[Rfam]
RNA sequence: CCCUCCGAAGUUUCCCUCAGGAUAGCUGGCGCUCGAUGGGAGAGCAGUCACACCUGGUAAAGCGAAUGAUUAGAGGCAUUGGGGUCGAAACGUCCUCAACCUAUUCUCAAACUUUCAAUGGGUGUACGGGAGGCCUUCUGGGUUGAGGCCUCCCGCUGCGAUGAGAGUGCCAAGUGGGCCACUUUUGGUAAGCAGAACUGGCGCUGUGGGAUGAACCAAACGCCGGGGUAAGGCGCCCGAGUCGGGACGCUCAUGAGAACCCAUGAAGGGUGUUGGUUGCUUAAGACAGCAGGACGGUGGCCAUGGAAGUCGGAAUCCGCUAAGGAGUGUGUAACAACUCACCUGCCGAAGCAACUAGCCCCGAAAAUGGAUGGCGCUCUAGCGUCGCGCCUAUCCCCGGCCGUCGCUGGCAGAAAAGCACGAAAUGUGGGGGUGCUAAGCCGCGACGAGUAGGAGGGCCGCAGCGGUGUGCGUUGAAGGUGUCGGGCGUGAGCCCGCCUGGAGCCGCCGCUGGUGCAGAU
Numbered sequence: 001c002c003c004u005c006c007g008a009a010g011u012u013u014c015c016c017u018c019a020g021g022a023u024a025g026c027u028g029g030c031g032c033u034c035g036a037u038g039g040g041a042g043a044g045c046a047g048u049c050a051c052a053c054c055u056g057g058u059a060a061a062g063c064g065a066a067u068g069a070u071u072a073g074a075g076g077c078a079u080u081g082g083g084g085u086c087g088a089a090a091c092g093u094c095c096u097c098a099a100c101c102u103a104u105u106c107u108c109a110a111a112c113u114u115u116c117a118a119u120g121g122g123u124g125u126a127c128g129g130g131a132g133g134c135c136u137u138c139u140g141g142g143u144u145g146a147g148g149c150c151u152c153c154c155g156c157u158g159c160g161a162u163g164a165g166a167g168u169g170c171c172a173a174g175u176g177g178g179c180c181a182c183u184u185u186u187g188g189u190a191a192g193c194a195g196a197a198c199u200g201g202c203g204c205u206g207u208g209g210g211a212u213g214a215a216c217c218a219a220a221c222g223c224c225g226g227g228g229u230a231a232g233g234c235g236c237c238c239g240a241g242u243c244g245g246g247a248c249g250c251u252c253a254u255g256a257g258a259a260c261c262c263a264u265g266a267a268g269g270g271u272g273u274u275g276g277u278u279g280c281u282u283a284a285g286a287c288a289g290c291a292g293g294a295c296g297g298u299g300g301c302c303a304u305g306g307a308a309g310u311c312g313g314a315a316u317c318c319g320c321u322a323a324g325g326a327g328u329g330u331g332u333a334a335c336a337a338c339u340c341a342c343c344u345g346c347c348g349a350a351g352c353a354a355c356u357a358g359c360c361c362c363g364a365a366a367a368u369g370g371a372u373g374g375c376g377c378u379c380u381a382g383c384g385u386c387g388c389g390c391c392u393a394u395c396c397c398c399g400g401c402c403g404u405c406g407c408u409g410g411c412a413g414a415a416a417a418g419c420a421c422g423a424a425a426u427g428u429g430g431g432g433g434u435g436c437u438a439a440g441c442c443g444c445g446a447c448g449a450g451u452a453g454g455a456g457g458g459c460c461g462c463a464g465c466g467g468u469g470u471g472c473g474u475u476g477a478a479g480g481u482g483u484c485g486g487g488c489g490u491g492a493g494c495c496c497g498c499c500u501g502g503a504g505c506c507g508c509c510g511c512u513g514g515u516g517c518a519g520a521u
Stems, first nucleotide, its partner, number of pairs: 001458006011024001013022003027172007048126001050125006060115001061113002067109003072104001074102003079099006086092001128154009178202004183197005207218003222401005228395001232391003241388001243387001248384003268362003272359010289346005295319003301313002320324001325340001329338002402448006409442003460516001462513008471505002479500002486495003
The family of this 521-nucleotide part of an RNA from Haemaphysalis longicornis is "Eukaryotic large subunit ribosomal RNA". Pairs were carried over by alignment from the consensus structure, which is taken from published work. A search with the family's covariance model found it, with a score of 2952 bits. The organism belongs to Haemaphysalis, within Eukaryota. The literature on the family includes a 2001 paper in Science by Yusupov et al., "Crystal structure of the ribosome at 5.5 A resolution".